[Rfam]
RNA: Bacterial RNase P class A
Organism: Peptoclostridium litorale
RNA sequence: UGAGUAAGCCGGAUAGUCGCGGGCGCUUAGGCGAACGAGGAAAGUCCGAGCUCCGUAGGGCAAGGGUGCUGGGUAAUACCCAGUGGAGGCGACUCUAAGGAUAGUGCAACAGAGAUAUACCGCUAAAGGGGCUUUAGGGCCUACUAGCAAGGGUGGAAAGGCGAGGUAAGAGCUCACCAGCGGCUAGGUGACUAGUCGGCUAUGUAAACCCCAUCCGGAGCAAGACCAAGUAGGGACUCAAAAAGGGGGCUGCCCGUUCCCGUCCCGUAGGUAGGUCGCUUGAGCCUGUUGGUAACAGCAGGCCUAGAUAGAUGACUAUUCAAGACAGAACUCGGCUUAUAGGCUUACUCAUAUU
Numbered sequence: 001u002g003a004g005u006a007a008g009c010c011g012g013a014u015a016g017u018c019g020c021g022g023g024c025g026c027u028u029a030g031g032c033g034a035a036c037g038a039g040g041a042a043a044g045u046c047c048g049a050g051c052u053c054c055g056u057a058g059g060g061c062a063a064g065g066g067u068g069c070u071g072g073g074u075a076a077u078a079c080c081c082a083g084u085g086g087a088g089g090c091g092a093c094u095c096u097a098a099g100g101a102u103a104g105u106g107c108a109a110c111a112g113a114g115a116u117a118u119a120c121c122g123c124u125a126a127a128g129g130g131g132c133u134u135u136a137g138g139g140c141c142u143a144c145u146a147g148c149a150a151g152g153g154u155g156g157a158a159a160g161g162c163g164a165g166g167u168a169a170g171a172g173c174u175c176a177c178c179a180g181c182g183g184c185u186a187g188g189u190g191a192c193u194a195g196u197c198g199g200c201u202a203u204g205u206a207a208a209c210c211c212c213a214u215c216c217g218g219a220g221c222a223a224g225a226c227c228a229a230g231u232a233g234g235g236a237c238u239c240a241a242a243a244a245g246g247g248g249g250c251u252g253c254c255c256g257u258u259c260c261c262g263u264c265c266c267g268u269a270g271g272u273a274g275g276u277c278g279c280u281u282g283a284g285c286c287u288g289u290u291g292g293u294a295a296c297a298g299c300a301g302g303c304c305u306a307g308a309u310a311g312a313u314g315a316c317u318a319u320u321c322a323a324g325a326c327a328g329a330a331c332u333c334g335g336c337u338u339a340u341a342g343g344c345u346u347a348c349u350c351a352u353a354u355u
Stems, first nucleotide, its partner, number of pairs: 001351010011340001012320007020037002024033003042338003046335005051220004059255002064216005069083005084098001085096004099211002104209002106205003120152002122148004128142003160178002163175003180200001181198007224277004234265004246260005284303008